[Rfam]
RNA sequence: CAAUGUUUGGUAGAGGUGUUUGGAAUGAAAGAUGGAAAAAGUGUUAUUCAGUUACAUUCAGUGCUGUUUUCUGUCUUUCAUUCCACACAUCGUCUAACGAACGUUGC
Numbered sequence: 001c002a003a004u005g006u007u008u009g010g011u012a013g014a015g016g017u018g019u020u021u022g023g024a025a026u027g028a029a030a031g032a033u034g035g036a037a038a039a040a041g042u043g044u045u046a047u048u049c050a051g052u053u054a055c056a057u058u059c060a061g062u063g064c065u066g067u068u069u070u071c072u073g074u075c076u077u078u079c080a081u082u083c084c085a086c087a088c089a090u091c092g093u094c095u096a097a098c099g100a101a102c103g104u105u106g107c
Base pairs, nucleotide, nucleotide: 005102006101007100008099009098011096012095013094014093015091016090017089018088019087021085022084023083024082025081026080027079028078029077030076031075032074033073034072035071036070037069050058051057052056
This 107-nucleotide RNA sequence from Abrus precatorius belongs to the Rfam family "MIR1507 microRNA precursor family". The source organism's lineage runs through Eukaryota, Viridiplantae, eudicotyledons, rosids and Abrus.